[Rfam]
RNA sequence: CACAGCGCGAGGCGUGGACGAGAGGAAGGGAUAGAGAAAUCGUAGCCCUACGAACAGAAGCUUGAUAUUAAGGCGUUCAUUGGCGUGUAAGUUAGCCUAAGAUAACGAAGCCUUAAAGGCAGCCGUAAACCAUGGGCGUAAAUCAAGAGGGCAGACGAGGAAAGAACACG
Numbered sequence: 001c002a003c004a005g006c007g008c009g010a011g012g013c014g015u016g017g018a019c020g021a022g023a024g025g026a027a028g029g030g031a032u033a034g035a036g037a038a039a040u041c042g043u044a045g046c047c048c049u050a051c052g053a054a055c056a057g058a059a060g061c062u063u064g065a066u067a068u069u070a071a072g073g074c075g076u077u078c079a080u081u082g083g084c085g086u087g088u089a090a091g092u093u094a095g096c097c098u099a100a101g102a103u104a105a106c107g108a109a110g111c112c113u114u115a116a117a118g119g120c121a122g123c124c125g126u127a128a129a130c131c132a133u134g135g136g137c138g139u140a141a142a143u144c145a146a147g148a149g150g151g152c153a154g155a156c157g158a159g160g161a162a163a164g165a166a167c168a169c170g
Stems, first nucleotide, its partner, number of pairs: 001016003006011001032168001040158004045152005061147006073139003077135004082130001085113001087111002091106004

Source information:
A member of the RNA family "Group II catalytic intron D1-D4-3" from Enterocloster clostridioformis, 170 nucleotides long. Rfam's curators write: Group II introns are found in rRNA, tRNA and mRNA of organelles in fungi, plants and protists, and also in mRNA in bacteria. The base pairs follow the family's consensus structure.